RNA sequence: AUUUAUCUCAGAGGAGUGAAACUGAGAACACAAAGUAAAUUGUUUUGGAGUUUGGAAUGCCAUAAUCACAUGCAUUUAUGGUUAUGCUUGUAUAUGGUACAUAUUUUCGAAUUUUAAUUUACCUUGUGUUCUCAGGUCACCCCUUUGAGCCAACU
Numbered sequence: 001a002u003u004u005a006u007c008u009c010a011g012a013g014g015a016g017u018g019a020a021a022c023u024g025a026g027a028a029c030a031c032a033a034a035g036u037a038a039a040u041u042g043u044u045u046u047g048g049a050g051u052u053u054g055g056a057a058u059g060c061c062a063u064a065a066u067c068a069c070a071u072g073c074a075u076u077u078a079u080g081g082u083u084a085u086g087c088u089u090g091u092a093u094a095u096g097g098u099a100c101a102u103a104u105u106u107u108c109g110a111a112u113u114u115u116a117a118u119u120u121a122c123c124u125u126g127u128g129u130u131c132u133c134a135g136g137u138c139a140c141c142c143c144u145u146u147g148a149g150c151c152a153a154c155u
Stems, first nucleotide, its partner, number of pairs: 007149002011145004016140004024133010
Shown here is a 155-nucleotide RNA from Arachis hypogaea, a member of the family "MIR398 microRNA precursor family". The source organism's lineage runs through Eukaryota, Viridiplantae, Tracheophyta, dalbergioids sensu lato and Arachis. For this family Rfam cites "Computational identification of plant microRNAs and their targets, including a stress-induced miRNA" (Jones-Rhoades and Bartel, Mol Cell, 2004).